This 123-nucleotide RNA sequence from Molossus molossus belongs to the Rfam family "Small nucleolar RNA SNORA27". Rfam's curators write: ACA27 is a member of the H/ACA class of snoRNA that guide the sites of modification of uridines to pseudouridines. Gene Ontology terms of the family: RNA processing and nucleolus. By type it is an H/ACA-box small nucleolar RNA. Taxonomically the source falls in Molossus (Eukaryota, Eumetazoa, Deuterostomia, Euteleostomi). It scores 76 bits against the family's covariance model.
[Rfam]
RNA sequence: UACCCCCUUUUCACUUUGCCAAUUGGACUUAGGUUUUCAUUAGUCACUCAAAUGGGGCAAAGGAAACAUCCUUUUAAAACUCAAGCAAACUACCCUGACUGGUUUGGCUCAGCGGUUAGAGCA
Numbered sequence: 001u002a003c004c005c006c007c008u009u010u011u012c013a014c015u016u017u018g019c020c021a022a023u024u025g026g027a028c029u030u031a032g033g034u035u036u037u038c039a040u041u042a043g044u045c046a047c048u049c050a051a052a053u054g055g056g057g058c059a060a061a062g063g064a065a066a067c068a069u070c071c072u073u074u075u076a077a078a079a080c081u082c083a084a085g086c087a088a089a090c091u092a093c094c095c096u097g098a099c100u101g102g103u104u105u106g107g108c109u110c111a112g113c114g115g116u117u118a119g120a121g122c123a
Base pairs, nucleotide, nucleotide: 033058034057035056036055040051041050043048069123071121072120073119074118083109086106087105088104089103090102091101092100